[Rfam]
RNA sequence: UACGCCCGGGAGGGCAGUGGUCUGUUCUGUUCUAACCCUAACUGAUAAGGGCGUAGGCGCCGUGCUUUUGUUCCCCGCGCGUUGUUUUUCUCGCUGACUUUCAGCGGGCGGGAAAAGCCUCGGCCUACCGCCGUCUACCGAUAGCCUGGAGCAAACAAAAAAAUGUCAGCCGCCGGCCGCUCGCCCCUCCCGGGAACCUGCAGUGGCUCGCCCGCCCAGCCCCGCUCCCCGCCUGGAGGCCGCGGUCGGCCUGGGGCUUCUCCGGAGGUUCCCGCUGCCGCCGCGAAGAGUUGGGCUCUGUCAGCCGCGGGUCCCGCGGGAAACCAAGGGCGAGGCUGGGGCCUCCUGAACGCAGGGAGAGAAACGGAGCGGUUCCCCGCGUGCGUGCGCUUCCCUGAGUUGUGGGAUGUGCGCUCGGGGCUCAGCUCCGACAGGU
Numbered sequence: 001u002a003c004g005c006c007c008g009g010g011a012g013g014g015c016a017g018u019g020g021u022c023u024g025u026u027c028u029g030u031u032c033u034a035a036c037c038c039u040a041a042c043u044g045a046u047a048a049g050g051g052c053g054u055a056g057g058c059g060c061c062g063u064g065c066u067u068u069u070g071u072u073c074c075c076c077g078c079g080c081g082u083u084g085u086u087u088u089u090c091u092c093g094c095u096g097a098c099u100u101u102c103a104g105c106g107g108g109c110g111g112g113a114a115a116a117g118c119c120u121c122g123g124c125c126u127a128c129c130g131c132c133g134u135c136u137a138c139c140g141a142u143a144g145c146c147u148g149g150a151g152c153a154a155a156c157a158a159a160a161a162a163a164u165g166u167c168a169g170c171c172g173c174c175g176g177c178c179g180c181u182c183g184c185c186c187c188u189c190c191c192g193g194g195a196a197c198c199u200g201c202a203g204u205g206g207c208u209c210g211c212c213c214g215c216c217c218a219g220c221c222c223c224g225c226u227c228c229c230c231g232c233c234u235g236g237a238g239g240c241c242g243c244g245g246u247c248g249g250c251c252u253g254g255g256g257c258u259u260c261u262c263c264g265g266a267g268g269u270u271c272c273c274g275c276u277g278c279c280g281c282c283g284c285g286a287a288g289a290g291u292u293g294g295g296c297u298c299u300g301u302c303a304g305c306c307g308c309g310g311g312u313c314c315c316g317c318g319g320g321a322a323a324c325c326a327a328g329g330g331c332g333a334g335g336c337u338g339g340g341g342c343c344u345c346c347u348g349a350a351c352g353c354a355g356g357g358a359g360a361g362a363a364a365c366g367g368a369g370c371g372g373u374u375c376c377c378c379g380c381g382u383g384c385g386u387g388c389g390c391u392u393c394c395c396u397g398a399g400u401u402g403u404g405g406g407a408u409g410u411g412c413g414c415u416c417g418g419g420g421c422u423c424a425g426c427u428c429c430g431a432c433a434g435g436u
Base pairs, nucleotide, nucleotide: 005194006193007192008191009190010189011188012186013185014184015183017181019178020177021176022175064118065117066116067115068114076110077109078108080106081105082104083103084102093170094169095168096167097166098165099163100162101161197356198355199354200353201352210336211335212334213332214331215330216329217328221320222319223318224317225316228311229310230309231308232307241285242284243283244282245281247280248279249278250277253273254272255271287299288298289297290296367428368427369426370425371423372422374420375419376418377417385414386413387412388411389410392407393406394405395404

The family of this 436-nucleotide RNA sequence from Loxodonta africana is "Vertebrate telomerase RNA". Gene Ontology terms of the family: telomerase activity, telomerase catalytic core complex and telomere maintenance via telomerase. Rfam classes the family as a non-coding RNA gene. The source organism's lineage runs through Eukaryota, Vertebrata, Sarcopterygii, Elephantidae and Loxodonta. Telomerase is a ribonucleoprotein reverse transcriptase that synthesises telomeric DNA. Telomerase RNAs differ greatly in sequence and structure between vertebrates, ciliates and yeasts, but they share a 5' pseudoknot structure close to the template sequence. Vertebrate telomerase RNAs have a 3' H/ACA snoRNA-like domain. For this family Rfam cites "Secondary structure of vertebrate telomerase RNA" (Chen et al., Cell, 2000). The base pairs follow the family's consensus structure, which is taken from published work.